[Rfam]
RNA sequence: GUUGGAAUAAUGCGGGUUGUAGUUCAGAAAUGCGAAACCACGGGCCUGAUCAAUCGUGUGAAACAGUGGGUUCCAGUCAAACAUCACCAACAUAAACCCCGGAAGCGUAUUGGCGACAAACAUCUUGCCCGAUGCAAUCAUAUUUGCCCGUUG
Dot-bracket structure: .(((..((..(..((.......))..)..)).))).((.(.((......))..).))......(((((.(((.......)))....(.((.((....(.(((.((.((.(((....)))..)).))..)))..).....)).)).)..)))))
The record is a 153-nucleotide RNA sequence from Actibacterium atlanticum, which matches "Ruegeria cis2 sRNA" in Rfam. The source organism's lineage runs through Bacteria, Pseudomonadota, Rhodobacterales, Roseobacteraceae and Actibacterium. A search with the family's covariance model found it, with a score of 87 bits. For this family Rfam cites "Experimental Identification of Small Non-Coding RNAs in the Model Marine Bacterium Ruegeria pomeroyi DSS-3" (Rivers et al., Front Microbiol, 2016).